[Rfam]
RNA sequence: AUGGCUACUGUAAACAUCCUUGACUGGAAGCUGUGAGGUGUUAGAAGGAGCUUUCAGUCGGAUGUUUACAGCAGGAGG
Numbered sequence: 001a002u003g004g005c006u007a008c009u010g011u012a013a014a015c016a017u018c019c020u021u022g023a024c025u026g027g028a029a030g031c032u033g034u035g036a037g038g039u040g041u042u043a044g045a046a047g048g049a050g051c052u053u054u055c056a057g058u059c060g061g062a063u064g065u066u067u068a069c070a071g072c073a074g075g076a077g078g
Stems, first nucleotide, its partner, number of pairs: 002077001005074002008071012023058010

Rfam assigns this 78-nucleotide RNA from Brachypteracias leptosomus to the family "mir-30 microRNA precursor family". About the family: This family consists of the mammalian microRNA (miRNA) precursor mir-30a. Animal miRNAs are transcribed as ~70nt precursors and subsequently processed by the Dicer enzyme to give a ~22nt product. In this case the mature sequence comes from both the 3' (miR-30) and 5' (mir-97-6) arms of the precursor. The extents of the hairpin precursors are not generally known and are estimated based on hairpin prediction. Rfam links the family to the GO terms RISC complex and gene silencing by miRNA. On this family, see Lagos-Quintana et al., Science 2001: "Identification of novel genes coding for small expressed RNAs". A search with the family's covariance model found it, with a score of 71 bits. Rfam 15.1 lists 3,879 matches to the family in 647 species.